[Rfam]
RNA: Bacterial RNase P class A
RNA sequence: CGAGUGAAUUGAGCAGUCGCGCCGUCAAAUCGGCGAGGAAAGUCCGGGCUCCGCAGGGCAGAGUGCUGGUUAAUGGCCAGUCGGGGUAACCUGAAGGAAAGUGCCACAGAGAUAUACCGCCCCUCGGGGUAAGGGUGAAAAGGUGAGGUAAGAGCUCACCAGCGACCUGGUGACAGGUACGGCUAGGUAAACCCCACUUGGAGCAAGACCUAAUAGGGGAGAGUUAAGAGCUGCCCGCUCGUUCUCCCGGGUUGGUCGCUAUGCGCACCUUGGUGCGAAGGAGGUCUACGGCAACGUAGAUCCUAGAUAGAUGACUGCUGCCGCGCGAGCGGUACAGAACCCGGCUUAUAGAUUCACUCGACAG
Numbered sequence: 001c002g003a004g005u006g007a008a009u010u011g012a013g014c015a016g017u018c019g020c021g022c023c024g025u026c027a028a029a030u031c032g033g034c035g036a037g038g039a040a041a042g043u044c045c046g047g048g049c050u051c052c053g054c055a056g057g058g059c060a061g062a063g064u065g066c067u068g069g070u071u072a073a074u075g076g077c078c079a080g081u082c083g084g085g086g087u088a089a090c091c092u093g094a095a096g097g098a099a100a101g102u103g104c105c106a107c108a109g110a111g112a113u114a115u116a117c118c119g120c121c122c123c124u125c126g127g128g129g130u131a132a133g134g135g136u137g138a139a140a141a142g143g144u145g146a147g148g149u150a151a152g153a154g155c156u157c158a159c160c161a162g163c164g165a166c167c168u169g170g171u172g173a174c175a176g177g178u179a180c181g182g183c184u185a186g187g188u189a190a191a192c193c194c195c196a197c198u199u200g201g202a203g204c205a206a207g208a209c210c211u212a213a214u215a216g217g218g219g220a221g222a223g224u225u226a227a228g229a230g231c232u233g234c235c236c237g238c239u240c241g242u243u244c245u246c247c248c249g250g251g252u253u254g255g256u257c258g259c260u261a262u263g264c265g266c267a268c269c270u271u272g273g274u275g276c277g278a279a280g281g282a283g284g285u286c287u288a289c290g291g292c293a294a295c296g297u298a299g300a301u302c303c304u305a306g307a308u309a310g311a312u313g314a315c316u317g318c319u320g321c322c323g324c325g326c327g328a329g330c331g332g333u334a335c336a337g338a339a340c341c342c343g344g345c346u347u348a349u350a351g352a353u354u355c356a357c358u359c360g361a362c363a364g
Stems, first nucleotide, its partner, number of pairs: 001360010011349001012319007020035005040347003044344005049203004056236004061199005066080005081095001082093004096194002101192002103188003117134002119130004142160006162183001163181002165178005207257004217248006228240004283302008